[Rfam]
RNA sequence: ACCGGUCCUCGGUAGUGGUUCCCAGGCGAAUCAUCCUGGGCACUUCGAUCGAAGACCGGC
Dot-bracket structure: .((((((.(((((...(((.((((((........)))))).)))...))))).)))))).
Numbered sequence: 001a002c003c004g005g006u007c008c009u010c011g012g013u014a015g016u017g018g019u020u021c022c023c024a025g026g027c028g029a030a031u032c033a034u035c036c037u038g039g040g041c042a043c044u045u046c047g048a049u050c051g052a053a054g055a056c057c058g059g060c
Stems, first nucleotide, its partner, number of pairs: 002059006009052005017044003021040006